[Rfam]
RNA sequence: ACCGCAUACUUACCUACUAUAUAGUAACCAAAAUACAUGUAUUUCUCCUACUAUAUAGCAGGUAAGUACGCGGUUU
Numbered sequence: 001a002c003c004g005c006a007u008a009c010u011u012a013c014c015u016a017c018u019a020u021a022u023a024g025u026a027a028c029c030a031a032a033a034u035a036c037a038u039g040u041a042u043u044u045c046u047c048c049u050a051c052u053a054u055a056u057a058g059c060a061g062g063u064a065a066g067u068a069c070g071c072g073g074u075u076u
Base pairs, nucleotide, nucleotide: 001074002073003072004071005070007068008067009066010065011064012063013062014061015060017058018057019056020055021054022053023052024051025050026049031044033042034041035040

A member of the RNA family "mir-7563 microRNA precursor family" from Ameiurus melas, 76 nucleotides long. Its family is annotated with RISC complex and miRNA-mediated post-transcriptional gene silencing in the Gene Ontology.